[Rfam]
RNA sequence: CGGCAGUCCUCAAGGAUAGUAACAACGAAUGUCGAGGAGUCAGCAGAGGUCGAAGUAGCCGUUCUCGCGCAGAACAAGGCGAAGGAC
Numbered sequence: 001c002g003g004c005a006g007u008c009c010u011c012a013a014g015g016a017u018a019g020u021a022a023c024a025a026c027g028a029a030u031g032u033c034g035a036g037g038a039g040u041c042a043g044c045a046g047a048g049g050u051c052g053a054a055g056u057a058g059c060c061g062u063u064c065u066c067g068c069g070c071a072g073a074a075c076a077a078g079g080c081g082a083a084g085g086a087c
Stems, first nucleotide, its partner, number of pairs: 003020002006017004040047002049087003058080003061075003
RNA: Group II catalytic intron D1-D4-1